[Rfam]
RNA sequence: ACCGGUCGCGGGUGGCAGCGAGGGCGCCCGCGACGCCAGACAGAACACCGUGCUCCGGAACAACAGGGGCACUUCAGGGCGUU
Numbered sequence: 001a002c003c004g005g006u007c008g009c010g011g012g013u014g015g016c017a018g019c020g021a022g023g024g025c026g027c028c029c030g031c032g033a034c035g036c037c038a039g040a041c042a043g044a045a046c047a048c049c050g051u052g053c054u055c056c057g058g059a060a061c062a063a064c065a066g067g068g069g070c071a072c073u074u075c076a077g078g079g080c081g082u083u
Base pairs, nucleotide, nucleotide: 005034006033007032008031009030010029011028012027013026014025016023050072051071052070053069054068055067056066

Overview: Shown here is an 83-nucleotide sequence, a member of the family "nrdJ RNA". The family's RNA type in Rfam is small RNA. Pairs were carried over by alignment from the consensus structure, which is taken from published work.